Annotation
MIR7502 microRNA precursor family: a 143-nucleotide sequence from Gossypium laxum. It scores 80 bits against the family's covariance model. Pairs were carried over by alignment from the consensus structure, which was predicted with RNAalifold.
RNA sequence: UGUUAAAAUUUCUAUCUAUUUUUACGGUUAAAAACUAGACUUCGUACAUCAAUAUGAGAUCAACAUGGCACACCAUGUCAUUGUCUGAUUAUUCUAUCAAUCACAUCAGUUUUUAACAGUAUAAAUUGAUGAAAUUUUUAACA
Numbered sequence: 001u002g003u004u005a006a007a008a009u010u011u012c013u014a015u016c017u018a019u020u021u022u023u024a025c026g027g028u029u030a031a032a033a034a035c036u037a038g039a040c041u042u043c044g045u046a047c048a049u050c051a052a053u054a055u056g057a058g059a060u061c062a063a064c065a066u067g068g069c070a071c072a073c074c075a076u077g078u079c080a081u082u083g084u085c086u087g088a089u090u091a092u093u094c095u096a097u098c099a100a101u102c103a104c105a106u107c108a109g110u111u112u113u114u115a116a117c118a119g120u121a122u123a124a125a126u127u128g129a130u131g132a133a134a135u136u137u138u139u140a141a142c143a
Stems, first nucleotide, its partner, number of pairs: 002142007010134002013131004018126004023121003028116006